[Rfam]
RNA sequence: CCCCGACAUCCAGAGAGUGGCUGACGCCAACGCCAACCUGCCGACCGGGGCAAGGUGGUUUGCUCCCCUUCGAUCCACAAGAGCACGAAGGGGGCGAUGGGGCUCUAAGCGAGCAAUCCAACCGGAAAAG
Numbered sequence: 001c002c003c004c005g006a007c008a009u010c011c012a013g014a015g016a017g018u019g020g021c022u023g024a025c026g027c028c029a030a031c032g033c034c035a036a037c038c039u040g041c042c043g044a045c046c047g048g049g050g051c052a053a054g055g056u057g058g059u060u061u062g063c064u065c066c067c068c069u070u071c072g073a074u075c076c077a078c079a080a081g082a083g084c085a086c087g088a089a090g091g092g093g094g095c096g097a098u099g100g101g102g103c104u105c106u107a108a109g110c111g112a113g114c115a116a117u118c119c120a121a122c123c124g125g126a127a128a129a130g
Base pairs, nucleotide, nucleotide: 007099008098009097010096015031018029019028020027021026032059033058034057037055038054039053040051041050042049045125046124047123048122102114103113104112105111

Record summary: This 130-nucleotide sequence from Microbulbifer thermotolerans belongs to the Rfam family "SAM-I/IV (S-adenosyl methionine) riboswitch aptamer". Rfam 15.1 lists 567 matches to the family in 508 species. Lineage of the source: Bacteria > Pseudomonadati > Cellvibrionales > Microbulbiferaceae > Microbulbifer.